[Rfam]
Nucleotides: 097
Base pairs, nucleotide, nucleotide: 001097002096003095004094046059047058048057049056050055
Number, partner (000 for none) and nucleotide at each position: 001097u002096u003095g004094c005000u006000a007000u008000g009000a010000u011000g012000a013000a014000a015000a016000c017000c018000u019000a020000u021000c022000c023000a024000u025000u026000c027000a028000u029000u030000c031000g032000c033000g034000g035000u036000u037000u038000c039000c040000a041000c042000c043000a044000g045000a046059g047058a048057g049056u050055u051000c052000u053000u054000g055050g056049a057048c058047u059046c060000g061000a062000a063000g064000a065000u066000g067000g068000c069000c070000g071000u072000u073000c074000g075000a076000c077000c078000u079000u080000c081000c082000u083000u084000g085000g086000a087000a088000g089000u090000c091000u092000g093000a094004g095003c096002a097001a

The family of this 97-nucleotide RNA from Mytilus coruscus is "Small nucleolar RNA SNORD14". A search with the family's covariance model found it, with a score of 66 bits. U14 small nucleolar RNA (U14 snoRNA) is required for early cleavages of eukaryotic precursor rRNAs. In yeasts, this molecule possess a stem-loop region (known as the Y-domain) which is essential for function. A similar structure, but with a different consensus sequence, is found in plants, but is absent in vertebrates. Gene Ontology terms of the family: nucleolus and RNA processing. Rfam classes the family as a C/D-box small nucleolar RNA. The literature on the family includes a 1996 paper in Nucleic Acids Res by Samarsky et al., "An essential domain in Saccharomyces cerevisiae U14 snoRNA is absent in vertebrates, but conserved in other yeasts". The family's consensus secondary structure was predicted with PFOLD.